Annotation:
Rfam assigns this 104-nucleotide RNA sequence from Litorihabitans aurantiacus to the family "TPP riboswitch aptamer (THI element)". Taxonomically the source falls in Litorihabitans (Bacteria, Bacillati, Actinomycetes, Micrococcales). Vitamin B(1) in its active form thiamin pyrophosphate (TPP) is an essential coenzyme that is synthesised by coupling of pyrimidine and thiazole moieties in bacteria. A search with the family's covariance model found it, with a score of 59 bits.
RNA sequence: GUCGAACGACAGGGGAGCGCGUCAGCGCUGAGAGUGCGGCCCCGCCGCAGACCCUCGAACCUGCUCCGGUUAGCACCGGCGAAGGAAGUCGGGAUUCCUCUCCC
Dot-bracket structure: ......((((((((..((((....))))......(((((.....)))))..))))....(((...((((......))))...)))..)))).............